A member of the RNA family "Group II catalytic intron D1-D4-2", 120 nucleotides long.
Rfam's curators write: Group II introns are found in rRNA, tRNA and mRNA of organelles in fungi, plants and protists, and also in mRNA in bacteria.

RNA sequence: GAGGGGAGGCCCCUCGGAGCCGACUUGCAGGAGUUGGCUUCAAACCACCUCAAGCUGCUGUGGUCAAAAGCCAUGGUGGUGAGCGUUGUGGAAAAGUCACGGCAUAAGACUGUGGCAGGU
Numbered sequence: 001g002a003g004g005g006g007a008g009g010c011c012c013c014u015c016g017g018a019g020c021c022g023a024c025u026u027g028c029a030g031g032a033g034u035u036g037g038c039u040u041c042a043a044a045c046c047a048c049c050u051c052a053a054g055c056u057g058c059u060g061u062g063g064u065c066a067a068a069a070g071c072c073a074u075g076g077u078g079g080u081g082a083g084c085g086u087u088g089u090g091g092a093a094a095a096g097u098c099a100c101g102g103c104a105u106a107a108g109a110c111u112g113u114g115g116c117a118g119g120u
Stems, first nucleotide, its partner, number of pairs: 001015005016041006023034004046119001048091002051088003054080002057077003061073004096116006
Source information: The base pairs follow the family's consensus structure. It is one of the family's seed sequences. A reference for the family is Lehmann and Schmidt (2003), "Group II introns: structure and catalytic versatility of large natural ribozymes", Crit Rev Biochem Mol Biol.